[Rfam]
RNA sequence: AUUGUAUUAGCUGUAACGAAGUGCUUCGCGCACGGGCUGGUUUUUCCG
Numbered sequence: 001a002u003u004g005u006a007u008u009a010g011c012u013g014u015a016a017c018g019a020a021g022u023g024c025u026u027c028g029c030g031c032a033c034g035g036g037c038u039g040g041u042u043u044u045u046c047c048g
Base pairs, nucleotide, nucleotide: 008039009038010037011036012035021033022032023031024030
About this RNA
This 48-nucleotide RNA sequence belongs to the Rfam family "ssnA RNA". The family's RNA type in Rfam is cis-regulatory element. Rfam's curators put it in the seed alignment. The base pairs follow the family's consensus structure, which is taken from published work.